[Rfam]
The record is a 77-nucleotide RNA sequence from Ixodes scapularis, which matches "mir-10 microRNA precursor family" in Rfam. Lineage of the source: Eukaryota > Metazoa > Eumetazoa > Panarthropoda > Ixodes. The family has 36 seed sequences and 3,853 matches in Rfam 15.1. A reference for the family is Ambros (2001), "microRNAs: tiny regulators with great potential", Cell.
RNA sequence: CGUAAUCUACCCUGUAGAACCGGGCUUUUGUAGACUAGCGACCCUUUCAGAAGCUCGUUUCUACAGGUAUCUUGCGA
Dot-bracket structure: .((((....((....((((.((((((((((.................)))))))))).))))...))....))))..